[Rfam]
RNA sequence: UGAGCUGGCCAGGCGGCCGCGUCGGACCCCCGGGUCCGCCGAGGAACGUCCGGGCUCCGUAGGGCAGGGUGGUGGGUAACGCCCACCCGGGGUGACCCGCGGGAAAGUGCCACAGAGAGAAGACCGCCACCGGACGACCUUCGGGCCGACCGGGGGUAAGGGUGAAAGGGUGGUGUAAGAGACCACCAGCGCGCCGGGUGACCGGUGCGGCUAGGUAAACCCCACCCGGAGCAAGGCCAGACAGGGAGCGAUCGAGGGCUGCCCGCCCGAGCUCCCGGGUAGGCCGCUGGAGGCGCACGGCGACGUGCGUCGUAGAUGGAUGGUCGCCACCCGCGCGAGGGUGACCGCGCGCGGGGACAGAACCCGGCGUACGUGCCAGCUCAUCCG
Number, nucleotide and partner (000 for none) at each position: 001u383002g382003a381004g380005c379006u378007g377008g376009c375010c000011a000012g328013g327014c326015g325016g324017c323018c322019g000020c041021g040022u000023c038024g037025g036026a035027c034028c033029c000030c000031c000032g000033g028034g027035u026036c025037c024038g023039c000040c021041g020042a000043g000044g000045a000046a370047c369048g368049u000050c367051c366052g365053g364054g363055c231056u230057c229058c228059g000060u000061a000062g264063g263064g262065c261066a000067g227068g226069g225070u224071g223072g086073u085074g084075g083076g082077u000078a000079a000080c000081g000082c076083c075084c074085a073086c072087c101088c099089g098090g097091g096092g000093u000094g000095a000096c091097c090098c089099g088100c000101g087102g222103g221104a000105a000106a000107g220108u219109g216110c215111c214112a000113c000114a000115g000116a000117g000118a000119g000120a000121a000122g000123a000124c161125c160126g157127c156128c155129a000130c153131c152132g151133g150134a000135c000136g000137a000138c000139c000140u000141u000142c000143g000144g000145g000146c000147c000148g000149a000150c133151c132152g131153g130154g000155g128156g127157u126158a000159a000160g125161g124162g000163u000164g000165a000166a000167a000168g000169g187170g186171u185172g184173g183174u182175g000176u000177a000178a000179g000180a000181g000182a174183c173184c172185a171186c170187c169188a000189g211190c209191g208192c207193g206194c205195c204196g203197g202198g000199u000200g000201a000202c197203c196204g195205g194206u193207g192208c191209g190210g000211c189212u000213a000214g111215g110216u109217a000218a000219a108220c107221c103222c102223c071224a070225c069226c068227c067228g058229g057230a056231g055232c000233a000234a000235g285236g284237c283238c282239a000240g000241a000242c000243a000244g276245g275246g274247a273248g272249c271250g000251a000252u000253c000254g000255a000256g268257g267258g266259c265260u000261g065262c064263c063264c062265g259266c258267c257268c256269g000270a000271g249272c248273u247274c246275c245276c244277g000278g000279g000280u000281a000282g238283g237284c236285c235286g000287c000288u000289g000290g000291a000292g311293g310294c309295g308296c307297a306298c305299g304300g000301c000302g000303a000304c299305g298306u297307g296308c295309g294310u293311c292312g000313u000314a000315g000316a000317u000318g000319g000320a000321u000322g018323g017324u016325c015326g014327c013328c012329a000330c000331c000332c000333g000334c000335g000336c000337g000338a000339g000340g000341g000342u000343g000344a000345c000346c000347g000348c000349g000350c000351g000352c000353g000354g000355g000356g000357a000358c000359a000360g000361a000362a000363c054364c053365c052366g051367g050368c048369g047370u046371a000372c000373g000374u000375g009376c008377c007378a006379g005380c004381u003382c002383a001384u000385c000386c000387g000
Bacterial RNase P class A: a 387-nucleotide RNA sequence from Cellulomonas triticagri. Rfam's curators write: Ribonuclease P (RNase P) is a ubiquitous endoribonuclease, found in archaea, bacteria and eukarya as well as chloroplasts and mitochondria. Pairs were carried over by alignment from the consensus structure, which is taken from published work.